The record is a 72-nucleotide RNA, which matches "tRNA" in Rfam. The match comes from Rfam's covariance-model search (59 bits). The family's consensus secondary structure is taken from published work.

RNA sequence: GCCACGGUAGCGUAAUUGGUAACGCACCAGGCUAGAAUUCUGGGGUUCCCGGUUCGAUCCCGGGUCGUGGCA
Numbered sequence: 001g002c003c004a005c006g007g008u009a010g011c012g013u014a015a016u017u018g019g020u021a022a023c024g025c026a027c028c029a030g031g032c033u034a035g036a037a038u039u040c041u042g043g044g045g046u047u048c049c050c051g052g053u054u055c056g057a058u059c060c061c062g063g064g065u066c067g068u069g070g071c072a
Base pairs, nucleotide, nucleotide: 001071002070003069004068005067006066007065010025011024012023013022027043028042029041030040031039048064049063050062051061052060